[Rfam]
RNA sequence: UUAGCAGACUUAUCUUAUCGACUUAAAUUUAUUUUAAGUAGGAAAGUCCGAACACCAAAGAGUAGCAUAGCGGAUAACAACCGUCCAACGUAAGUUGAGGACCAGUGCAACAGAAAGAAUGUACAGUUAGGCUGUAGUGAAACCAGGUAAACUCUAUGCGGUGCAAUGCCAUGUAUAUUAGAAAUUGAGAGCUACUCGCUCGAUUCUAAAGGGUAGGCAGAUUGAAGUUACGAGUAAUUGUAACUCUAGAUAAAUGAUAAGACUUAGACAGGAUUCGGCUUAUUAGUCUGCUUUUUUA
Numbered sequence: 001u002u003a004g005c006a007g008a009c010u011u012a013u014c015u016u017a018u019c020g021a022c023u024u025a026a027a028u029u030u031a032u033u034u035u036a037a038g039u040a041g042g043a044a045a046g047u048c049c050g051a052a053c054a055c056c057a058a059a060g061a062g063u064a065g066c067a068u069a070g071c072g073g074a075u076a077a078c079a080a081c082c083g084u085c086c087a088a089c090g091u092a093a094g095u096u097g098a099g100g101a102c103c104a105g106u107g108c109a110a111c112a113g114a115a116a117g118a119a120u121g122u123a124c125a126g127u128u129a130g131g132c133u134g135u136a137g138u139g140a141a142a143c144c145a146g147g148u149a150a151a152c153u154c155u156a157u158g159c160g161g162u163g164c165a166a167u168g169c170c171a172u173g174u175a176u177a178u179u180a181g182a183a184a185u186u187g188a189g190a191g192c193u194a195c196u197c198g199c200u201c202g203a204u205u206c207u208a209a210a211g212g213g214u215a216g217g218c219a220g221a222u223u224g225a226a227g228u229u230a231c232g233a234g235u236a237a238u239u240g241u242a243a244c245u246c247u248a249g250a251u252a253a254a255u256g257a258u259a260a261g262a263c264u265u266a267g268a269c270a271g272g273a274u275u276c277g278g279c280u281u282a283u284u285a286g287u288c289u290g291c292u293u294u295u296u297u298a
Stems, first nucleotide, its partner, number of pairs: 003292008012283001013262007021039007044281003048278005053163004060197004065159005070084004085099001086097004100154002105152002107148002122136006167219004178209005189201004226245008
RNA: Bacterial RNase P class A